A member of the RNA family "FMN riboswitch aptamer (RFN element)" from Macrococcus sp. DPC7161, 127 nucleotides long. A search with the family's covariance model found it, with a score of 128 bits. The base pairs follow the family's consensus structure, which is taken from published work. Its family is annotated with FMN binding in the Gene Ontology.
RNA sequence: AUUCAUCUUCGGGGUACGGUGAAAUUCCGAACCGGCGGUAAAAGCCCGCGACCUGUUUGAGUAAUCAAAUGGCUGAUUUGGUGGAAAUCCAAAGCCGACAGUAAAGUCUGGAUGGGAGAAGAUGAAA
Numbered sequence: 001a002u003u004c005a006u007c008u009u010c011g012g013g014g015u016a017c018g019g020u021g022a023a024a025u026u027c028c029g030a031a032c033c034g035g036c037g038g039u040a041a042a043a044g045c046c047c048g049c050g051a052c053c054u055g056u057u058u059g060a061g062u063a064a065u066c067a068a069a070u071g072g073c074u075g076a077u078u079u080g081g082u083g084g085a086a087a088u089c090c091a092a093a094g095c096c097g098a099c100a101g102u103a104a105a106g107u108c109u110g111g112a113u114g115g116g117a118g119a120a121g122a123u124g125a126a127a
Stems, first nucleotide, its partner, number of pairs: 003125008017029003031107002033097002035049004044095002053072002077093005099110003